[Rfam]
RNA: 6S-Flavo RNA
RNA sequence: ACUCAACAUUAAUUUGUUUUUAAAGGGUGAGUUUAGUUUGUAAAAGCAGGCCUUACUAGUAUAAGGAUCCUUGAUCAUGCUGUUAGCCCUAAUCCUGUUUUAUAGGAGUUU
Numbered sequence: 001a002c003u004c005a006a007c008a009u010u011a012a013u014u015u016g017u018u019u020u021u022a023a024a025g026g027g028u029g030a031g032u033u034u035a036g037u038u039u040g041u042a043a044a045a046g047c048a049g050g051c052c053u054u055a056c057u058a059g060u061a062u063a064a065g066g067a068u069c070c071u072u073g074a075u076c077a078u079g080c081u082g083u084u085a086g087c088c089c090u091a092a093u094c095c096u097g098u099u100u101u102a103u104a105g106g107a108g109u110u111u
Stems, first nucleotide, its partner, number of pairs: 024090005035081003039077001044072003051066004